The record is a 153-nucleotide RNA sequence from Rhizobium sp. Leaf371, which matches "speF leader" in Rfam. Taxonomically the source falls in Rhizobium (Bacteria, Pseudomonadati, Alphaproteobacteria, Hyphomicrobiales). A search with the family's covariance model found it, with a score of 101 bits. This family is a putative regulatory RNA structure that is found upstream of the speF gene encoding ornithine decarboxylase in Agrobacterium tumefaciens and other alpha-proteobacteria. Gene Ontology term of the family: regulation of gene expression.
RNA sequence: UGCCGGCUUUCCAUCAGCCGGGGUUACUGAAGAGGCACACCUUCAUUGCCGGACGUGCGGUAGGUUCCAACCUCCAAUCCAUGGCAGACAAAGCCGGAUGAACGCCUCGGCGGGCUUCAUCCACAAAUCGCGCUGUACGAGCGCAUGUGAGGA
Number, nucleotide and partner (000 for none) at each position: 001u023002g000003c021004c020005g019006g018007c017008u016009u000010u000011c000012c000013a000014u000015c000016a008017g007018c006019c005020g004021g003022g000023g001024u000025u000026a000027c000028u000029g000030a000031a000032g000033a000034g050035g049036c048037a047038c000039a000040c000041c000042u000043u000044c000045a000046u000047u037048g036049c035050c034051g000052g000053a000054c000055g000056u000057g133058c132059g131060g000061u000062a000063g000064g000065u000066u000067c000068c000069a000070a000071c000072c000073u000074c000075c000076a000077a000078u000079c000080c000081a000082u000083g095084g094085c000086a000087g000088a000089c000090a000091a000092a000093g000094c084095c083096g000097g000098a000099u000100g000101a000102a000103c000104g115105c114106c113107u112108c000109g000110g000111c000112g107113g106114g105115c104116u000117u000118c000119a000120u000121c000122c000123a000124c000125a000126a000127a000128u000129c000130g000131c059132g058133c057134u000135g000136u000137a000138c000139g000140a000141g000142c000143g000144c000145a000146u000147g000148u000149g000150a000151g000152g000153a000
Annotation
The literature on the family includes a 2012 paper in RNA Biol by del Val et al., "A survey of sRNA families in alpha-proteobacteria". The family's consensus secondary structure was predicted with RNAalifold.